[Rfam]
Shown here is a 207-nucleotide sequence from Dactylosporangium vinaceum, a member of the family "Actinobacteria sRNA Ms_IGR-5".
RNA sequence: ACACGGGAAAGGAGGUGGUCCAAAGUUGUGUAGCAAUGGGACUCGUGAGGUGGCUGUCCGCUAGUCGCCGUCCUCUGGACUCGCACUUCGUGUGUCCGCCCGGAUGGCGGUCAGGCGAAUACGAGACAGCAACCCAGCCCCCGAGGCUUUCCGGUGUAGUCCGACCGGCCCACGCGCCUAGCGCGGGAACCUCGGGGGCUGUUCCAU
Numbered sequence: 001a002c003a004c005g006g007g008a009a010a011g012g013a014g015g016u017g018g019u020c021c022a023a024a025g026u027u028g029u030g031u032a033g034c035a036a037u038g039g040g041a042c043u044c045g046u047g048a049g050g051u052g053g054c055u056g057u058c059c060g061c062u063a064g065u066c067g068c069c070g071u072c073c074u075c076u077g078g079a080c081u082c083g084c085a086c087u088u089c090g091u092g093u094g095u096c097c098g099c100c101c102g103g104a105u106g107g108c109g110g111u112c113a114g115g116c117g118a119a120u121a122c123g124a125g126a127c128a129g130c131a132a133c134c135c136a137g138c139c140c141c142c143g144a145g146g147c148u149u150u151c152c153g154g155u156g157u158a159g160u161c162c163g164a165c166c167g168g169c170c171c172a173c174g175c176g177c178c179u180a181g182c183g184c185g186g187g188a189a190c191c192u193c194g195g196g197g198g199c200u201g202u203u204c205c206a207u
Stems, first nucleotide, its partner, number of pairs: 014058006059117004064112001067108004072103002135201012151168005
About this RNA: The pairing is the family consensus, mapped onto this sequence. The family's RNA type in Rfam is small RNA. Lineage of the source: Bacteria > Bacillati > Actinomycetota > Micromonosporaceae > Dactylosporangium.